RNA sequence: AUGGAAGUGUUGACUAUUUCCCCAGAUGAUCGAAGCUGAACAAACUGUGCUAUUUACAUCUCUGUGUUACACAGAGAUACCAAGCCAGGUGUUUCUGAUCCAU
Numbered sequence: 001a002u003g004g005a006a007g008u009g010u011u012g013a014c015u016a017u018u019u020c021c022c023c024a025g026a027u028g029a030u031c032g033a034a035g036c037u038g039a040a041c042a043a044a045c046u047g048u049g050c051u052a053u054u055u056a057c058a059u060c061u062c063u064g065u066g067u068u069a070c071a072c073a074g075a076g077a078u079a080c081c082a083a084g085c086c087a088g089g090u091g092u093u094u095c096u097g098a099u100c101c102a103u
Stems, first nucleotide, its partner, number of pairs: 001103005